[Rfam]
RNA: Rhizobiales sRNA Atu_At1
RNA sequence: AAGCGCCGGGUGUCAACCGGCCGCAACAGGGAUGAUGGACGUGGUGAUUUUGCCGGUUUCUAGCCACGGCAGCAACGCAUCGGUACGCGUGGCAUCUGACCUGUUCCCGGC
Numbered sequence: 001a002a003g004c005g006c007c008g009g010g011u012g013u014c015a016a017c018c019g020g021c022c023g024c025a026a027c028a029g030g031g032a033u034g035a036u037g038g039a040c041g042u043g044g045u046g047a048u049u050u051u052g053c054c055g056g057u058u059u060c061u062a063g064c065c066a067c068g069g070c071a072g073c074a075a076c077g078c079a080u081c082g083g084u085a086c087g088c089g090u091g092g093c094a095u096c097u098g099a100c101c102u103g104u105u106c107c108c109g110g111c
Stems, first nucleotide, its partner, number of pairs: 006110004011023002014020001025105006034096004040068006069084002073082001